[Rfam]
RNA: Archaeal small subunit ribosomal RNA, nucleotides 2262 to 2395
Organism: Candidatus Calditenuaceae archaeon HR02
RNA sequence: CACUGCCCAUCGCUCCACCCGAGCUGGGGAUGGGCGAGAGCCACUCAAGUUGGGUGGCCCGAGCCUAGACCCGGUGAGGGGGGAGAAGUUGUAACAAGGUGGCCGCACGGGAACGUGCGGCCGGAUCACCUCCC
Numbered sequence: 001c002a003c004u005g006c007c008c009a010u011c012g013c014u015c016c017a018c019c020c021g022a023g024c025u026g027g028g029g030a031u032g033g034g035c036g037a038g039a040g041c042c043a044c045u046c047a048a049g050u051u052g053g054g055u056g057g058c059c060c061g062a063g064c065c066u067a068g069a070c071c072c073g074g075u076g077a078g079g080g081g082g083g084a085g086a087a088g089u090u091g092u093a094a095c096a097a098g099g100u101g102g103c104c105g106c107a108c109g110g111g112a113a114c115g116u117g118c119g120g121c122c123g124g125a126u127c128a129c130c131u132c133c134c
Stems, first nucleotide, its partner, number of pairs: 003098001005095001008091002011088001013085004018080003023075006031067005038060001040058008100123010